[Rfam]
The record is a 160-nucleotide sequence from Gottschalkia acidurici, which matches "M-box riboswitch aptamer (ykoK leader)" in Rfam. The base pairs follow the family's consensus structure. A reference for the family is Barrick et al. (2004), "New RNA motifs suggest an expanded scope for riboswitches in bacterial genetic control", Proc Natl Acad Sci U S A. The match comes from Rfam's covariance-model search (108 bits). Taxonomically the source falls in Gottschalkia acidurici (Bacteria, Tissierellia, Gottschalkiaceae, Gottschalkia). M-box riboswitch, also know as ykoK leader is described as a metaloregulatory RNA that sense divalent metals and function as a genetic control element of genes related to divalent metal transport in bacteria.

RNA sequence: AUAUUUCCUCGGUAGGUGAGGUUACUACAAGGAUACGGGUUGCUGCCGUAAAAGGAUGGAGACAUUCUGAACUGGUUAGCAGGUUUUGCCGAACAAAGAAGGCUUAAUCUAACGCAACUUCAUUGCCUUGCAGAGCUAAAACUUGAACGAGAUAAAAUGG
Numbered sequence: 001a002u003a004u005u006u007c008c009u010c011g012g013u014a015g016g017u018g019a020g021g022u023u024a025c026u027a028c029a030a031g032g033a034u035a036c037g038g039g040u041u042g043c044u045g046c047c048g049u050a051a052a053a054g055g056a057u058g059g060a061g062a063c064a065u066u067c068u069g070a071a072c073u074g075g076u077u078a079g080c081a082g083g084u085u086u087u088g089c090c091g092a093a094c095a096a097a098g099a100a101g102g103c104u105u106a107a108u109c110u111a112a113c114g115c116a117a118c119u120u121c122a123u124u125g126c127c128u129u130g131c132a133g134a135g136c137u138a139a140a141a142c143u144u145g146a147a148c149g150a151g152a153u154a155a156a157a158u159g160g
Stems, first nucleotide, its partner, number of pairs: 005156002009152002011148001013100001015143003020137003025133002028130005039118005046074001048072002055066004082109004088103003